[Rfam]
RNA sequence: CCCCCAUGAGGAAACUUUCAACGUCUGACCCCCCUGGCCGGCCCAGGACCUGCCAAGGUGGAACCCACUGGUGCCCCCAGGGGGGACACGAGGACAGCAAGUCCUGAGGGGACAGUCUGAGGGGG
Numbered sequence: 001c002c003c004c005c006a007u008g009a010g011g012a013a014a015c016u017u018u019c020a021a022c023g024u025c026u027g028a029c030c031c032c033c034c035u036g037g038c039c040g041g042c043c044c045a046g047g048a049c050c051u052g053c054c055a056a057g058g059u060g061g062a063a064c065c066c067a068c069u070g071g072u073g074c075c076c077c078c079a080g081g082g083g084g085g086a087c088a089c090g091a092g093g094a095c096a097g098c099a100a101g102u103c104c105u106g107a108g109g110g111g112a113c114a115g116u117c118u119g120a121g122g123g124g125g
Stems, first nucleotide, its partner, number of pairs: 001124004

Rfam assigns this 125-nucleotide RNA from Sakesphorus luctuosus to the family "Small nucleolar RNA SNORD22". The family's consensus secondary structure was predicted with PFOLD. The family's RNA type in Rfam is C/D-box small nucleolar RNA. The organism belongs to Sakesphorus, within Eukaryota. Rfam 15.1 lists 1,081 matches to the family in 414 species.